[Rfam]
RNA sequence: GAGGUUGGCAGCAGGCGCGUGCCUCGCCAACCGGGUCAGGUCCGGAAGGAAGCAGCCCUAACGAGCGUUUCGCGGGUUGUUCGUCCAGCCUCCCA
Numbered sequence: 001g002a003g004g005u006u007g008g009c010a011g012c013a014g015g016c017g018c019g020u021g022c023c024u025c026g027c028c029a030a031c032c033g034g035g036u037c038a039g040g041u042c043c044g045g046a047a048g049g050a051a052g053c054a055g056c057c058c059u060a061a062c063g064a065g066c067g068u069u070u071c072g073c074g075g076g077u078u079g080u081u082c083g084u085c086c087a088g089c090c091u092c093c094c095a
Base pairs, nucleotide, nucleotide: 001092002091003090004089005088010081011080012079013078016074017073018072019071023065024064025063026062033058034057035056036055041050042049043048
The family of this 95-nucleotide sequence from Methyloceanibacter marginalis is "Bacterial small signal recognition particle RNA".
Rfam classes the family as a non-coding RNA gene.
NCBI's taxonomy places the organism under Bacteria, Pseudomonadota, Hyphomicrobiales, Hyphomicrobiaceae, Methyloceanibacter.
For this family Rfam cites "Temperature-responsive in vitro RNA structurome of Yersinia pseudotuberculosis" (Righetti et al., Proc Natl Acad Sci U S A, 2016).
A search with the family's covariance model found it, with a score of 52 bits.
The signal recognition particle (SRP) is a universally conserved ribonucleoprotein involved in the co-translational targeting of proteins to membranes.